Record summary
Rfam assigns this 404-nucleotide sequence from Corynebacterium alimapuense to the family "Bacterial RNase P class A". Ribonuclease P (RNase P) is a ubiquitous endoribonuclease, found in archaea, bacteria and eukarya as well as chloroplasts and mitochondria. The base pairs follow the family's consensus structure, which is taken from published work. Its Rfam clan is "RNaseP clan".

RNA sequence: UGAGUUGGCUGGGUGAUCGCGGCGGCUGAACCACCCCGGUAUCGGGGAAGGCAGUAGUCGAGGAAAGUCCGGACUCCACAGAGCACGGUGGUUGUUAACGGCAACCCGGGGUAACCCGCGGGCACGUGCAACAGAGAGUAGACCGCCAGGCCUGAUUGGUCGGGUAAGGGUGAAAGGGUGCGGUAAGAGCGCACCGGCGGGCCAGGUGACUGGUCCGGCCAGGUAAACCCCACCGGGAGCAAGGCAUCAAAGCCUGCCAAUAGCGCAGGCUGGUUCGGAUGAUUGAGGGUGACUCGCCUGAGUCCGAAGGUAGCUGCUUGAGGCGAUCAGCGAUGGUCGACCCAGAUGGAUGUUCACCGCCUCUUUUAGAGGUACAGAAUCCGGCUUAUCGGCUGGCUCAUUCG
Numbered sequence: 001u002g003a004g005u006u007g008g009c010u011g012g013g014u015g016a017u018c019g020c021g022g023c024g025g026c027u028g029a030a031c032c033a034c035c036c037c038g039g040u041a042u043c044g045g046g047g048a049a050g051g052c053a054g055u056a057g058u059c060g061a062g063g064a065a066a067g068u069c070c071g072g073a074c075u076c077c078a079c080a081g082a083g084c085a086c087g088g089u090g091g092u093u094g095u096u097a098a099c100g101g102c103a104a105c106c107c108g109g110g111g112u113a114a115c116c117c118g119c120g121g122g123c124a125c126g127u128g129c130a131a132c133a134g135a136g137a138g139u140a141g142a143c144c145g146c147c148a149g150g151c152c153u154g155a156u157u158g159g160u161c162g163g164g165u166a167a168g169g170g171u172g173a174a175a176g177g178g179u180g181c182g183g184u185a186a187g188a189g190c191g192c193a194c195c196g197g198c199g200g201g202c203c204a205g206g207u208g209a210c211u212g213g214u215c216c217g218g219c220c221a222g223g224u225a226a227a228c229c230c231c232a233c234c235g236g237g238a239g240c241a242a243g244g245c246a247u248c249a250a251a252g253c254c255u256g257c258c259a260a261u262a263g264c265g266c267a268g269g270c271u272g273g274u275u276c277g278g279a280u281g282a283u284u285g286a287g288g289g290u291g292a293c294u295c296g297c298c299u300g301a302g303u304c305c306g307a308a309g310g311u312a313g314c315u316g317c318u319u320g321a322g323g324c325g326a327u328c329a330g331c332g333a334u335g336g337u338c339g340a341c342c343c344a345g346a347u348g349g350a351u352g353u354u355c356a357c358c359g360c361c362u363c364u365u366u367u368a369g370a371g372g373u374a375c376a377g378a379a380u381c382c383g384g385c386u387u388a389u390c391g392g393c394u395g396g397c398u399c400a401u402u403c404g
Stems, first nucleotide, its partner, number of pairs: 001400010011389001012358005018352001020060004025055004065387003069384005074239004081295003086235005091105005106120001107118004121230002126228002128224002143169002145165003149161004177195006197219001198217008243315003275307006287299004322341001324339006
Dot-bracket structure: ((((((((((((((((.(.((((.((((.......................)))).))))....[[[.[[[[[((((...[[[..((((((((((.....)))))(((((....)))).)((...((((.............(((((.((((.....)))).)))..)).......((((((.......)))))).(((((((((....)))))))).)...))..)))))))))))))...(((.............................((((((......((((..]]]))))..)))))).....)))......(.((((((....)))))).)..........).))))).....................]]]]]]]].).))))))))))....